[Rfam]
RNA sequence: CUGCGGGUCACCUCCCCCCAACGGGAGGCUCAGUACUGGAAGGUACUCAAUG
Numbered sequence: 001c002u003g004c005g006g007g008u009c010a011c012c013u014c015c016c017c018c019c020a021a022c023g024g025g026a027g028g029c030u031c032a033g034u035a036c037u038g039g040a041a042g043g044u045a046c047u048c049a050a051u052g
Stems, first nucleotide, its partner, number of pairs: 011028006032047006

Rfam assigns this 52-nucleotide sequence from Minwuia thermotolerans to the family "serC leader".
The source organism's lineage runs through Bacteria, Pseudomonadati, Pseudomonadota, Minwuiaceae and Minwuia.
It scores 56 bits against the family's covariance model.
On this family, see Corbino et al., Genome Biol 2005: "Evidence for a second class of S-adenosylmethionine riboswitches and other regulatory RNA motifs in alpha-proteobacteria".
This family is a putative regulatory RNA structure that is found upstream of the serC-serA operon in some alpha-proteobacteria. The final stem of the structure overlaps the ribosome binding site of the serC reading frame.